[Rfam]
RNA sequence: UGAGUAAGUCAGAUGAUCGCGGGUACAGUGCCGAAAGGCCGUACACGAGGAAAGUCCGGGCUCCACAGGGCAGGGUGCCGGGUAACUCCCGGUCAAGGCGACUUGAAGGAAAGUGCAACAGAAAUAAACCGCCUUAUGGAUGGCCGAUUUACCGGCAGUCCAUAGGGUAAGGGUGGAAAGGUGAGGUAAGAGCUCACCGGUUUCCUGGCGACAGGAAACGCUCUGUAAACCCCACCCGGAGCAACACCGCAUAUGAGGACGUUAAGGUGGCCCGCCAGUCCUCGAAGGUGGCUUGAGCCAUGUAGUAAUACAUGGCCUAGAUAGAUGAUCAUCUAAUACAGAACCCGGCUUACAGACUUACUCAAUAU
Number, nucleotide and partner (000 for none) at each position: 001u364002g363003a362004g361005u360006a359007a358008g357009u356010c355011a000012g333013a332014u331015g330016a329017u328018c327019g000020c047021g046022g000023g044024u043025a042026c041027a000028g039029u000030g000031c000032c000033g000034a000035a000036a000037g000038g000039c028040c000041g026042u025043a024044c023045a000046c021047g020048a000049g000050g000051a000052a351053a350054g349055u000056c348057c347058g346059g345060g344061c241062u240063c239064c238065a000066c000067a000068g273069g272070g271071c270072a000073g237074g236075g235076u234077g233078c092079c091080g090081g089082g088083u000084a000085a000086c000087u000088c082089c081090c080091g079092g078093u107094c105095a104096a103097g102098g000099c000100g000101a000102c097103u096104u095105g094106a000107a093108g232109g231110a000111a000112a000113g230114u229115g226116c225117a224118a000119c000120a000121g000122a000123a000124a000125u000126a000127a000128a000129c172130c171131g168132c167133c166134u165135u164136a163137u162138g161139g160140a159141u158142g000143g000144c000145c000146g000147a000148u000149u000150u000151a000152c000153c000154g000155g000156c000157a000158g141159u140160c139161c138162a137163u136164a135165g134166g133167g132168u131169a000170a000171g130172g129173g000174u000175g000176g000177a000178a000179a000180g198181g197182u196183g195184a194185g193186g000187u000188a000189a000190g000191a000192g000193c185194u184195c183196a182197c181198c180199g221200g219201u218202u217203u216204c215205c214206u213207g212208g000209c000210g000211a000212c207213a206214g205215g204216a203217a202218a201219c200220g000221c199222u000223c000224u117225g116226u115227a000228a000229a114230c113231c109232c108233c077234a076235c075236c074237c073238g064239g063240a062241g061242c000243a000244a000245c290246a289247c288248c287249g000250c000251a000252u000253a000254u000255g283256a282257g281258g280259a279260c278261g000262u000263u000264a000265a000266g276267g275268u274269g000270g071271c070272c069273c068274g268275c267276c266277a000278g260279u259280c258281c257282u256283c255284g000285a000286a000287g248288g247289u246290g245291g000292c000293u000294u000295g000296a000297g316298c315299c314300a313301u312302g311303u310304a309305g000306u000307a000308a000309u304310a303311c302312a301313u300314g299315g298316c297317c000318u000319a000320g000321a000322u000323a000324g000325a000326u000327g018328a017329u016330c015331a014332u013333c012334u000335a000336a000337u000338a000339c000340a000341g000342a000343a000344c060345c059346c058347g057348g056349c054350u053351u052352a000353c000354a000355g010356a009357c008358u007359u006360a005361c004362u003363c002364a001365a000366u000367a000368u000

This 368-nucleotide RNA sequence from Thermoclostridium stercorarium belongs to the Rfam family "Bacterial RNase P class A". A search with the family's covariance model found it, with a score of 322 bits.